A member of the RNA family "Burkholderia RNA 7 (anti-hemB)" from Pseudorhodoferax sp. Leaf267, 97 nucleotides long.
Rfam links the family to the GO terms protein binding and bacterial biofilm matrix.
On this family, see Weinberg et al., Nucleic Acids Res 2007: "Identification of 22 candidate structured RNAs in bacteria using the CMfinder comparative genomics pipeline".
It is annotated as a small RNA.
The family has 26 seed sequences and 479 matches in Rfam 15.1.
RNA sequence: CCACCCGCUUCACCUCCCUGAGCGGGGGCCUCGAAGCUUUCGAGUCGACAGGCUUGCGGCCCCGACCCAUCGCACUGCGCCGGUCGGGGUAUUUUUU
Number, nucleotide and partner (000 for none) at each position: 001c000002c000003a000004c026005c025006c024007g023008c022009u021010u000011c000012a000013c000014c000015u000016c000017c000018c000019u000020g000021a009022g008023c007024g006025g005026g004027g000028g053029c052030c051031u050032c047033g046034a045035a000036g000037c000038u000039u000040u000041c000042g000043a000044g000045u034046c033047g032048a000049c000050a031051g030052g029053c028054u000055u000056g000057c000058g000059g000060c089061c088062c087063c086064g085065a084066c083067c082068c000069a000070u000071c000072g000073c000074a000075c000076u000077g000078c000079g000080c000081c000082g067083g066084u065085c064086g063087g062088g061089g060090u000091a000092u000093u000094u000095u000096u000097u000